[Rfam]
RNA: Trypanosomatid snoRNA TB11Cs5H1
RNA sequence: CAGUAAACAAUAACAAGCCCCUUCAAUGUCUUGAAAUACAUGCAGGUGGCCAAAGUGCGGUGCGAGAAAU
Numbered sequence: 001c002a003g004u005a006a007a008c009a010a011u012a013a014c015a016a017g018c019c020c021c022u023u024c025a026a027u028g029u030c031u032u033g034a035a036a037u038a039c040a041u042g043c044a045g046g047u048g049g050c051c052a053a054a055g056u057g058c059g060g061u062g063c064g065a066g067a068a069a070u
Base pairs, nucleotide, nucleotide: 003063004062005061008057009056017050018049019048020046021045026041027040028039029038